[Rfam]
RNA sequence: CUCAUGGACUGAGAAUCUGUGAUAAAAAGUGCUUCCAUCAUGAAGAAGCAAAUUGAACCGAAAGUGGCCAAGAAAUUGUUUCAUUCGUCAUUUUUGUCUAAAUUGGCAGUAUGAUUGUUGCUCGUCUACCU
Dot-bracket structure: ......((..(.(.((.(........).)).)..)..))..........................((.(.((..((((......(.((((.((.......)).)))).)..)))).....)).).))....
Numbered sequence: 001c002u003c004a005u006g007g008a009c010u011g012a013g014a015a016u017c018u019g020u021g022a023u024a025a026a027a028a029g030u031g032c033u034u035c036c037a038u039c040a041u042g043a044a045g046a047a048g049c050a051a052a053u054u055g056a057a058c059c060g061a062a063a064g065u066g067g068c069c070a071a072g073a074a075a076u077u078g079u080u081u082c083a084u085u086c087g088u089c090a091u092u093u094u095u096g097u098c099u100a101a102a103u104u105g106g107c108a109g110u111a112u113g114a115u116u117g118u119u120g121c122u123c124g125u126c127u128a129c130c131u
Stems, first nucleotide, its partner, number of pairs: 007039002011035001013032001015030002018027001066127002069124001071122002075115004085109001087107004092102002
This 131-nucleotide sequence from Eucalyptus grandis belongs to the Rfam family "Small nucleolar RNA snoR111". A reference for the family is Marker et al. (2002), "Experimental RNomics: identification of 140 candidates for small non-messenger RNAs in the plant Arabidopsis thaliana", Curr Biol. The base pairs follow the family's consensus structure, which was predicted with WAR. The match comes from Rfam's covariance-model search (42 bits). Gene Ontology terms of the family: nucleolus and RNA processing. Rfam 15.1 lists 533 matches to the family in 223 species.